[Rfam]
Nucleotides: 113
Stems, first nucleotide, its partner, number of pairs: 001021002005016002052109002055106004061097004070092007078084001
Number, partner (000 for none) and nucleotide at each position: 001021u002020c003000a004000c005016u006015g007000g008000a009000u010000c011000a012000u013000a014000u015006u016005g017000u018000g019000u020002g021001a022000u023000u024000c025000u026000u027000a028000a029000g030000a031000g032000g033000c034000g035000u036000a037000g038000a039000a040000u041000g042000a043000u044000c045000g046000a047000u048000u049000u050000g051000a052109g053108g054000u055106u056105a057104a058103g059000c060000u061097a062096u063095c064094g065000u066000u067000u068000c069000a070092g071091u072090c073089g074088u075087c076086a077000u078084u079000u080000c081000u082000c083000c084078g085000u086076u087075g088074a089073c090072g091071g092070c093000u094064c095063g096062a097061u098000u099000g100000u101000u102000g103058c104057u105056u106055g107000u108053c109052c110000a111000u112000a113000a

Source information:
Small nucleolar RNA snoR111: a 113-nucleotide sequence from Cuscuta campestris. The match comes from Rfam's covariance-model search (58 bits). The source organism's lineage runs through Eukaryota, Streptophytina, Tracheophyta, Spermatophyta and Cuscuta sect. Cleistogrammica. Pairs were carried over by alignment from the consensus structure, which was predicted with WAR. The family's RNA type in Rfam is H/ACA-box small nucleolar RNA. A reference for the family is Marker et al. (2002), "Experimental RNomics: identification of 140 candidates for small non-messenger RNAs in the plant Arabidopsis thaliana", Curr Biol.